[Rfam]
RNA: Small nucleolar RNA Z122
RNA sequence: UUUGGGAAAUGAUGAUUCAUUCACUUCAGAUGUCCUUAUGGACUUUUACAGAAUGAUGAAAAAUUGCACGUCAGUCUGAUCCCACA
Numbered sequence: 001u002u003u004g005g006g007a008a009a010u011g012a013u014g015a016u017u018c019a020u021u022c023a024c025u026u027c028a029g030a031u032g033u034c035c036u037u038a039u040g041g042a043c044u045u046u047u048a049c050a051g052a053a054u055g056a057u058g059a060a061a062a063a064u065u066g067c068a069c070g071u072c073a074g075u076c077u078g079a080u081c082c083c084a085c086a
Stems, first nucleotide, its partner, number of pairs: 001086001003084005